[Rfam]
A member of the RNA family "Glycine riboswitch aptamer" from Marinobacter sp. R17, 113 nucleotides long. It scores 45 bits against the family's covariance model.
RNA sequence: CACUUUCCGAAGAGCUGCCGGUGACAGCGUCACCCGGCACACCGAAGGAGCAAGCGGCCGCUUGCACGAUUGCGGCUCGUGAAUCUCUCAGGUUCCGUGACGGAAGGGGUGCU
Numbered sequence: 001c002a003c004u005u006u007c008c009g010a011a012g013a014g015c016u017g018c019c020g021g022u023g024a025c026a027g028c029g030u031c032a033c034c035c036g037g038c039a040c041a042c043c044g045a046a047g048g049a050g051c052a053a054g055c056g057g058c059c060g061c062u063u064g065c066a067c068g069a070u071u072g073c074g075g076c077u078c079g080u081g082a083a084u085c086u087c088u089c090a091g092g093u094u095c096c097g098u099g100a101c102g103g104a105a106g107g108g109g110u111g112c113u
Stems, first nucleotide, its partner, number of pairs: 003107007016039006041093003044089002048087003054080004
Dot-bracket structure: ..(((((((......((((((............)))))).(((((..(((...((((...................))))....))))).))).......)))))))......